[Rfam]
RNA: Ribosomal protein L10 leader
RNA sequence: UGAAUUCGAAUACGCAUACCGUAGACAGUAGGUGCCCAUAAGGGCUUAAUUUCCUACCGAGGUGUUAUGAUAAAACGUUUGGGAAUGCGGCAGGUUAGCCUGCUUGCGAUCAACGACAUCAUGGCCUUCGCAUCGUCUGCGAAGGCCUUUCUCAUGCACCCU
Number, nucleotide and partner (000 for none) at each position: 001u000002g000003a000004a000005u000006u000007c000008g000009a000010a000011u000012a000013c000014g000015c000016a000017u000018a000019c000020c000021g000022u000023a000024g000025a000026c000027a000028g057029u056030a055031g054032g053033u000034g045035c044036c043037c000038a000039u000040a000041a000042g000043g036044g035045c034046u000047u000048a000049a000050u000051u000052u000053c032054c031055u030056a029057c028058c000059g000060a000061g000062g000063u000064g000065u000066u000067a000068u000069g000070a000071u000072a000073a000074a000075a000076c000077g000078u000079u000080u000081g000082g000083g000084a000085a000086u000087g000088c000089g000090g000091c000092a000093g000094g000095u000096u000097a000098g000099c000100c000101u000102g000103c000104u000105u000106g000107c000108g000109a000110u000111c000112a000113a000114c000115g000116a000117c000118a000119u000120c000121a000122u000123g147124g146125c145126c144127u143128u142129c141130g140131c139132a138133u000134c000135g000136u000137c000138u132139g131140c130141g129142a128143a127144g126145g125146c124147c123148u000149u000150u000151c000152u000153c000154a000155u000156g000157c000158a000159c000160c000161c000162u000